[Rfam]
RNA sequence: UCCAGCAGGAGUCAGCCAUCCCAGACACAUUCCUGUGAUGGUGUUACACCACUGGGAGUGUUAGGUCUCGUCUUCAACCACCUGCGUGGUCACUGAUCUGGUACAUGUAGCAAUGGUGUGAGGCAGAACUGUGCUUCCUUCAGAGUGUACUAAGCGUUUGGGUGCUUAGUUGUAGUGUGGGAGCAGCAGU
Numbered sequence: 001u002c003c004a005g006c007a008g009g010a011g012u013c014a015g016c017c018a019u020c021c022c023a024g025a026c027a028c029a030u031u032c033c034u035g036u037g038a039u040g041g042u043g044u045u046a047c048a049c050c051a052c053u054g055g056g057a058g059u060g061u062u063a064g065g066u067c068u069c070g071u072c073u074u075c076a077a078c079c080a081c082c083u084g085c086g087u088g089g090u091c092a093c094u095g096a097u098c099u100g101g102u103a104c105a106u107g108u109a110g111c112a113a114u115g116g117u118g119u120g121a122g123g124c125a126g127a128a129c130u131g132u133g134c135u136u137c138c139u140u141c142a143g144a145g146u147g148u149a150c151u152a153a154g155c156g157u158u159u160g161g162g163u164g165c166u167u168a169g170u171u172g173u174a175g176u177g178u179g180g181g182a183g184c185a186g187c188a189g190u
Stems, first nucleotide, its partner, number of pairs: 001056005008049001011047002015042006021035001024032002065129002068126001070124004079118004083112003087105001089104001092102003132185007149170001151168007
RNA: Small nucleolar RNA SNORA74